A member of the RNA family "Mammalian CPEB3 ribozyme" from Alligator mississippiensis, 73 nucleotides long. A search with the family's covariance model found it, with a score of 38 bits. From the family's description: The mammalian CPEB3 ribozyme is a self cleaving RNA located in the second intron of the CPEB3 gene which belongs to a family of genes regulating messenger RNA polyadenylation. The organism belongs to Alligator, within Eukaryota. The family's consensus secondary structure is taken from published work.
RNA sequence: AUAAGUUUAAGGUGAUAGCAGAAGCGCUCAUGGCACAGCCCCAUCAGAUUCCAAAGAAUCUGUGAAUUUUGCU
Numbered sequence: 001a002u003a004a005g006u007u008u009a010a011g012g013u014g015a016u017a018g019c020a021g022a023a024g025c026g027c028u029c030a031u032g033g034c035a036c037a038g039c040c041c042c043a044u045c046a047g048a049u050u051c052c053a054a055a056g057a058a059u060c061u062g063u064g065a066a067u068u069u070u071g072c073u
Stems, first nucleotide, its partner, number of pairs: 011040003017073007024036001026034001045062007